Record summary
A member of the RNA family "mir-33 microRNA precursor family" from Galemys pyrenaicus, 69 nucleotides long.

RNA sequence: CUGGAGUGCAUUGUAGUUGCAUUGCAUGUUCCGGCGGUACUCAUGCAGUGUUCCCACAGUGCAUCCCAG
Dot-bracket structure: ((((.(((((((((.(..(.(((((((...............))))))).)..).)))))))).)))))
The family has 73 seed sequences and 1,467 matches in Rfam 15.1. The organism belongs to Galemys, within Eukaryota. A reference for the family is Li et al. (2009), "Direct sequencing and expression analysis of a large number of miRNAs in Aedes aegypti and a multi-species survey of novel mosquito miRNAs", BMC Genomics.